Rfam assigns this 160-nucleotide RNA sequence from Insulibacter thermoxylanivorax to the family "Ribosomal protein L10 leader". The match comes from Rfam's covariance-model search (57 bits).

[Rfam]
RNA sequence: CCAAUCGAAUAGCUUGUGCCGUAGACAGCAGGUGCCUUGUACAGAACAAGGCUUAAUAUCCCGCCGAGGUAGCGAAUGAAGAGGAUAUGGACUAUAUAUGGGAGUCCGUAUGCCUUCGAUCCUGCCUUCGUAUGUCUGCGGAGGCUUUUAUUAUGUCUAC
Numbered sequence: 001c002c003a004a005u006c007g008a009a010u011a012g013c014u015u016g017u018g019c020c021g022u023a024g025a026c027a028g029c030a031g032g033u034g035c036c037u038u039g040u041a042c043a044g045a046a047c048a049a050g051g052c053u054u055a056a057u058a059u060c061c062c063g064c065c066g067a068g069g070u071a072g073c074g075a076a077u078g079a080a081g082a083g084g085a086u087a088u089g090g091a092c093u094a095u096a097u098a099u100g101g102g103a104g105u106c107c108g109u110a111u112g113c114c115u116u117c118g119a120u121c122c123u124g125c126c127u128u129c130g131u132a133u134g135u136c137u138g139c140g141g142a143g144g145c146u147u148u149u150a151u152u153a154u155g156u157c158u159a160c
Base pairs, nucleotide, nucleotide: 028064029063031061032060034052035051036050037049038048039047040046124145125144126143127142128141129140130139131138132137